[Rfam]
RNA sequence: CUCUUAUCAAGAGAGGCGGAGGGAAUAGGCCCGAUGAUGCCCGGCAACCGGCGAUACGUUCGCAAAGGUGCUACGUCCUACAGACGAGUGAUCGGCUGGAAGAUAAGGG
Numbered sequence: 001c002u003c004u005u006a007u008c009a010a011g012a013g014a015g016g017c018g019g020a021g022g023g024a025a026u027a028g029g030c031c032c033g034a035u036g037a038u039g040c041c042c043g044g045c046a047a048c049c050g051g052c053g054a055u056a057c058g059u060u061c062g063c064a065a066a067g068g069u070g071c072u073a074c075g076u077c078c079u080a081c082a083g084a085c086g087a088g089u090g091a092u093c094g095g096c097u098g099g100a101a102g103a104u105a106a107g108g109g
Stems, first nucleotide, its partner, number of pairs: 001109008013042001015041003021032003026080004043072004048068002051063003076101001081098003085094002